A member of the RNA family "tRNA" from Cafeteria roenbergensis, 73 nucleotides long. Pairs were carried over by alignment from the consensus structure, which is taken from published work.

[Rfam]
RNA sequence: GCCUUCUUAGCUCAGUUGGUAGAGCGUUUGACUCGUAAUCAAAAGGUCAGUGGUUCGACUCCGCUAGAAGGCA
Numbered sequence: 001g002c003c004u005u006c007u008u009a010g011c012u013c014a015g016u017u018g019g020u021a022g023a024g025c026g027u028u029u030g031a032c033u034c035g036u037a038a039u040c041a042a043a044a045g046g047u048c049a050g051u052g053g054u055u056c057g058a059c060u061c062c063g064c065u066a067g068a069a070g071g072c073a
Stems, first nucleotide, its partner, number of pairs: 001072007010025004027043005049065005

From the family's description: Transfer RNA (tRNA) molecules are approximately 80 nucleotides in length.
Taxonomically the source falls in Cafeteria (Eukaryota, Stramenopiles, Opalozoa, Cafeteriaceae).